[Rfam]
RNA: Small nucleolar RNA SNORD67
RNA sequence: GAGGUGGCAGUGAUGAGUUGCACUAAUAGACAGGUUUGUGUGCAGUGGCACAGCAGACCUGUCCUGACCCAAACGUGGUGACACUUACUGUGCACAGGGGCCAUCUGAGCCACC
Numbered sequence: 001g002a003g004g005u006g007g008c009a010g011u012g013a014u015g016a017g018u019u020g021c022a023c024u025a026a027u028a029g030a031c032a033g034g035u036u037u038g039u040g041u042g043c044a045g046u047g048g049c050a051c052a053g054c055a056g057a058c059c060u061g062u063c064c065u066g067a068c069c070c071a072a073a074c075g076u077g078g079u080g081a082c083a084c085u086u087a088c089u090g091u092g093c094a095c096a097g098g099g100g101c102c103a104u105c106u107g108a109g110c111c112a113c114c
Stems, first nucleotide, its partner, number of pairs: 004113001006111003027066003031061004036056003039052005